[Rfam]
RNA: Streptomyces-metH RNA
RNA sequence: CGCGUCCGCCCCGUGGACGGCCCGACCCUUCCGUCGCGGUCCCGGCUACGCUGGCGGGGUGCGCCCGCUGUGGAAAGUCACGUAAGGGUGCAAAGCCGACAGCCGUCGCAUUCCAGGGAGCCCUUUCAUG
Numbered sequence: 001c002g003c004g005u006c007c008g009c010c011c012c013g014u015g016g017a018c019g020g021c022c023c024g025a026c027c028c029u030u031c032c033g034u035c036g037c038g039g040u041c042c043c044g045g046c047u048a049c050g051c052u053g054g055c056g057g058g059g060u061g062c063g064c065c066c067g068c069u070g071u072g073g074a075a076a077g078u079c080a081c082g083u084a085a086g087g088g089u090g091c092a093a094a095g096c097c098g099a100c101a102g103c104c105g106u107c108g109c110a111u112u113c114c115a116g117g118g119a120g121c122c123c124u125u126u127c128a129u130g
Base pairs, nucleotide, nucleotide: 060092061091062090063089065087066086095109096108098107099106100105